[Rfam]
RNA: transfer-messenger RNA
Organism: Melghirimyces profundicolus
RNA sequence: GGGGGCGUUUUGGGAUUCGACGGGGGCAGAUCGAGCGUCGGUAGCGAGCCGAGGGGCUGCGUCCUUCGUAAAAACGCGGAUUGCCAAAUGUAACUGGCAAACAACAACCUCAAGCUCUGGCUGCUUAAUCCAAGCCGGCCAGGAUCCGGCUCUCCAUCGCCCGUGUGGAGUGACCGGGUCUCAUAACUGAAGCGGGCUAGCUGACCGGACGCGCUGCCGGCCGGGAAGCGAAAUAAAGGCAGCUGGCUCAUCGGAGCGCCUGUCGUCGGGCAGUUCGAUGAGUGAGAUCUGAAUACGGCGACUGCGCUCGGAGAAGCCGACGUGGCGAUGUCUCCGGACAGCGGUUCGACUCCGCUCGCCUCCACCA
Numbered sequence: 001g002g003g004g005g006c007g008u009u010u011u012g013g014g015a016u017u018c019g020a021c022g023g024g025g026g027c028a029g030a031u032c033g034a035g036c037g038u039c040g041g042u043a044g045c046g047a048g049c050c051g052a053g054g055g056g057c058u059g060c061g062u063c064c065u066u067c068g069u070a071a072a073a074a075c076g077c078g079g080a081u082u083g084c085c086a087a088a089u090g091u092a093a094c095u096g097g098c099a100a101a102c103a104a105c106a107a108c109c110u111c112a113a114g115c116u117c118u119g120g121c122u123g124c125u126u127a128a129u130c131c132a133a134g135c136c137g138g139c140c141a142g143g144a145u146c147c148g149g150c151u152c153u154c155c156a157u158c159g160c161c162c163g164u165g166u167g168g169a170g171u172g173a174c175c176g177g178g179u180c181u182c183a184u185a186a187c188u189g190a191a192g193c194g195g196g197c198u199a200g201c202u203g204a205c206c207g208g209a210c211g212c213g214c215u216g217c218c219g220g221c222c223g224g225g226a227a228g229c230g231a232a233a234u235a236a237a238g239g240c241a242g243c244u245g246g247c248u249c250a251u252c253g254g255a256g257c258g259c260c261u262g263u264c265g266u267c268g269g270g271c272a273g274u275u276c277g278a279u280g281a282g283u284g285a286g287a288u289c290u291g292a293a294u295a296c297g298g299c300g301a302c303u304g305c306g307c308u309c310g311g312a313g314a315a316g317c318c319g320a321c322g323u324g325g326c327g328a329u330g331u332c333u334c335c336g337g338a339c340a341g342c343g344g345u346u347c348g349a350c351u352c353c354g355c356u357c358g359c360c361u362c363c364a365c366c367a
Stems, first nucleotide, its partner, number of pairs: 001363007021336008035323008045310005050068005057079006117142007143180006150172001152170006159197006200229003205224004216243002219240001246283010258271003262302004268294001340356005
Dot-bracket structure: (((((((.............((((((((......((((((((..((((([[[[[..((((((.]]]]].....)))))).....................................(((((((............)))))))((((((.(.((((((.[[[[[[)))))).)..))))))...........]]]]]]..(((..((((.......[[.[.))))..)))..........].]]..((((((((((..(((.[[[[..[)))..))))))))))..........]....]]]]...))))).....)))))))).....))))))))...(((((.......))))))))))))....